[Rfam]
RNA sequence: GGAAUAUAAGAAACCGUUUCUUAACCUUUAACUAAAAAAGCUAAGAACCGGCUCUUAAAUAAGAUAUUUAAAAGCCGAUUCUUAGUUUUUUUCGUUAAAGAUUAAGAGACAGUUUCUUAUAUUCU
Numbered sequence: 001g002g003a004a005u006a007u008a009a010g011a012a013a014c015c016g017u018u019u020c021u022u023a024a025c026c027u028u029u030a031a032c033u034a035a036a037a038a039a040g041c042u043a044a045g046a047a048c049c050g051g052c053u054c055u056u057a058a059a060u061a062a063g064a065u066a067u068u069u070a071a072a073a074g075c076c077g078a079u080u081c082u083u084a085g086u087u088u089u090u091u092u093c094g095u096u097a098a099a100g101a102u103u104a105a106g107a108g109a110c111a112g113u114u115u116c117u118u119a120u121a122u123u124c125u
Stems, first nucleotide, its partner, number of pairs: 001125014016110009026100007034092006041085007
Dot-bracket structure: ((((((((((((((.(((((((((.(((((((.((((((.(((((((...............................))))))).)))))).))))))).))))))))).))))))))))))))

The record is a 125-nucleotide sequence from Brassica carinata, which matches "MIR9563 microRNA precursor family" in Rfam. Rfam links the family to the GO terms miRNA-mediated post-transcriptional gene silencing and RISC complex. A search with the family's covariance model found it, with a score of 122 bits.